[Rfam]
RNA sequence: GUUGGGAUGAUGAAAAAAAACCAAAUCAGUCGGAUUCGCAUUGAUUUUCGUUAACAUGAUCACAAACCAGCUACUUCUGACUAAA
Numbered sequence: 001g002u003u004g005g006g007a008u009g010a011u012g013a014a015a016a017a018a019a020a021c022c023a024a025a026u027c028a029g030u031c032g033g034a035u036u037c038g039c040a041u042u043g044a045u046u047u048u049c050g051u052u053a054a055c056a057u058g059a060u061c062a063c064a065a066a067c068c069a070g071c072u073a074c075u076u077c078u079g080a081c082u083a084a085a
Stems, first nucleotide, its partner, number of pairs: 002084004
RNA: Small nucleolar RNA R12
Organism: Papaver somniferum